[Rfam]
RNA sequence: UAGAAAUGGGGGCUCCUUUCAGCCUAAAAACAGCUUCAAAUAAUAAGGGUUUUGGUCUUGUCGAUGAUGUUUUGGACUGAAGGGAGCUCCUAAUUCUU
Numbered sequence: 001u002a003g004a005a006a007u008g009g010g011g012g013c014u015c016c017u018u019u020c021a022g023c024c025u026a027a028a029a030a031c032a033g034c035u036u037c038a039a040a041u042a043a044u045a046a047g048g049g050u051u052u053u054g055g056u057c058u059u060g061u062c063g064a065u066g067a068u069g070u071u072u073u074g075g076a077c078u079g080a081a082g083g084g085a086g087c088u089c090c091u092a093a094u095u096c097u098u
Stems, first nucleotide, its partner, number of pairs: 007092012021078002024075005
Dot-bracket structure: ......((((((((((((..((.(((((..........................................))))).))..))))))))))))......

Notes:
Rfam assigns this 98-nucleotide sequence from Corchorus capsularis to the family "MIR319 microRNA precursor family". Rfam links the family to the GO terms miRNA-mediated post-transcriptional gene silencing and RISC complex. The family's consensus secondary structure was predicted with RNAalifold. A search with the family's covariance model found it, with a score of 77 bits.